[Rfam]
RNA sequence: AAUCCCUGUGAUGGAGUUAAUCAAAACCAUGCUAAUUCUGAUCUACCCAUGAUCGAAAUUUCUUCUCAUUGAUUAACUGAGGGAUUG
Numbered sequence: 001a002a003u004c005c006c007u008g009u010g011a012u013g014g015a016g017u018u019a020a021u022c023a024a025a026a027c028c029a030u031g032c033u034a035a036u037u038c039u040g041a042u043c044u045a046c047c048c049a050u051g052a053u054c055g056a057a058a059u060u061u062c063u064u065c066u067c068a069u070u071g072a073u074u075a076a077c078u079g080a081g082g083g084a085u086u087g
Base pairs, nucleotide, nucleotide: 001086002085003084004083005082006081007080
RNA: Small nucleolar RNA snoR53Y
Organism: Carnegiea gigantea